Annotation
Shown here is a 223-nucleotide sequence from Coleofasciculus chthonoplastes, a member of the family "HNH endonuclease-associated RNA and ORF (HEARO) RNA". Rfam's curators put it in the seed alignment. Taxonomically the source falls in Coleofasciculus chthonoplastes (Bacteria, Bacillati, Coleofasciculales, Coleofasciculaceae). The family's RNA type in Rfam is non-coding RNA gene. For this family Rfam cites "Exceptional structured noncoding RNAs revealed by bacterial metagenome analysis" (Weinberg et al., Nature, 2009). The family has 139 seed sequences and 952 matches in Rfam 15.1.
RNA sequence: GUCAGGAACCCCACAGCUACAAGCUGGGGGCUUGGAAUUUAGCCCAUACCUGACCAGAAGACCAGAGUAAUCUGGUAGCCGUUAUGGGGAAGCGUUAAAGUUCCGACCUACGGGUGCGUGCCAGCCUGUAGCUCUCGAAAUCCAGCAUUAAACAGGUGUACAAGGGUUAAGCCAGUGUGUUGGAUAAAGUACCGCCCAAUAACCACUUCGAGGCAAACUUUAC
Numbered sequence: 001g002u003c004a005g006g007a008a009c010c011c012c013a014c015a016g017c018u019a020c021a022a023g024c025u026g027g028g029g030g031c032u033u034g035g036a037a038u039u040u041a042g043c044c045c046a047u048a049c050c051u052g053a054c055c056a057g058a059a060g061a062c063c064a065g066a067g068u069a070a071u072c073u074g075g076u077a078g079c080c081g082u083u084a085u086g087g088g089g090a091a092g093c094g095u096u097a098a099a100g101u102u103c104c105g106a107c108c109u110a111c112g113g114g115u116g117c118g119u120g121c122c123a124g125c126c127u128g129u130a131g132c133u134c135u136c137g138a139a140a141u142c143c144a145g146c147a148u149u150a151a152a153c154a155g156g157u158g159u160a161c162a163a164g165g166g167u168u169a170a171g172c173c174a175g176u177g178u179g180u181u182g183g184a185u186a187a188a189g190u191a192c193c194g195c196c197c198a199a200u201a202a203c204c205a206c207u208u209c210g211a212g213g214c215a216a217a218c219u220u221u222a223c
Stems, first nucleotide, its partner, number of pairs: 001054006008047001010030002012027001017023002057209003061076005081203005087197003102138002108131008116219001119216001120214003140185009152176002155173002159170001